[Rfam]
RNA sequence: GCGACGUGAUGAUCGAAAUUCAAUGGUCUCUCAAUCCGAUGAUAUAAUUUGUUGUUACAUAUAAGUUUCGACAAGUUGUGAUCGC
Numbered sequence: 001g002c003g004a005c006g007u008g009a010u011g012a013u014c015g016a017a018a019u020u021c022a023a024u025g026g027u028c029u030c031u032c033a034a035u036c037c038g039a040u041g042a043u044a045u046a047a048u049u050u051g052u053u054g055u056u057a058c059a060u061a062u063a064a065g066u067u068u069c070g071a072c073a074a075g076u077u078g079u080g081a082u083c084g085c
Base pairs, nucleotide, nucleotide: 001085002084003083004082

Overview: The record is an 85-nucleotide sequence from Hibiscus syriacus, which matches "Small nucleolar RNA snoR14" in Rfam. The family's RNA type in Rfam is C/D-box small nucleolar RNA. Its family is annotated with RNA processing and nucleolus in the Gene Ontology. For this family Rfam cites "Multiple snoRNA gene clusters from Arabidopsis" (Brown et al., RNA, 2001). The source organism's lineage runs through Eukaryota, Streptophyta, Euphyllophyta, rosids and Hibiscus.